[Rfam]
Annotation
A member of the RNA family "Small nucleolar RNA SNORD25" from Callithrix jacchus, 81 nucleotides long. The family's consensus secondary structure was predicted with PFOLD. Clan: SNORD25 clan. Taxonomically the source falls in Callithrix (Eukaryota, Eumetazoa, Boreoeutheria, Platyrrhini).
RNA sequence: GGAAGCUGUGAUUUAUACACAUGAAAUCAUUCAUUUGGAGAUGGUGGUAAGAACAAUGAGGAUCUUAGGCACUGAGUUUCU
Numbered sequence: 001g002g003a004a005g006c007u008g009u010g011a012u013u014u015a016u017a018c019a020c021a022u023g024a025a026a027u028c029a030u031u032c033a034u035u036u037g038g039a040g041a042u043g044g045u046g047g048u049a050a051g052a053a054c055a056a057u058g059a060g061g062a063u064c065u066u067a068g069g070c071a072c073u074g075a076g077u078u079u080c081u
Base pairs, nucleotide, nucleotide: 002080003079004078005077006076
For this family Rfam cites "Identification of 10 novel snoRNA gene clusters from Arabidopsis thaliana" (Qu et al., Nucleic Acids Res, 2001).